Annotation
A member of the RNA family "Small nucleolar RNA Z279/snoR105/snoR108" from Rhododendron williamsianum, 105 nucleotides long. A search with the family's covariance model found it, with a score of 57 bits. The family's RNA type in Rfam is C/D-box small nucleolar RNA. From the family's description: This family includes the plant snoRNAs known as Z279, snoR105 and snoR108. For this family Rfam cites "Experimental RNomics: identification of 140 candidates for small non-messenger RNAs in the plant Arabidopsis thaliana" (Marker et al., Curr Biol, 2002).
RNA sequence: GCGAGUGGUCAGCUCUCGCAAUAGUAAAAGAUGCGAGAAGAGUGUCACAGCCCAAGCCUGGUUACGACAACCAUGGGCACUCUCAUCUUGAACCAAUCCGAUCCC
Numbered sequence: 001g002c003g004a005g006u007g008g009u010c011a012g013c014u015c016u017c018g019c020a021a022u023a024g025u026a027a028a029a030g031a032u033g034c035g036a037g038a039a040g041a042g043u044g045u046c047a048c049a050g051c052c053c054a055a056g057c058c059u060g061g062u063u064a065c066g067a068c069a070a071c072c073a074u075g076g077g078c079a080c081u082c083u084c085a086u087c088u089u090g091a092a093c094c095a096a097u098c099c100g101a102u103c104c105c
Stems, first nucleotide, its partner, number of pairs: 006095004015037005039083008059073004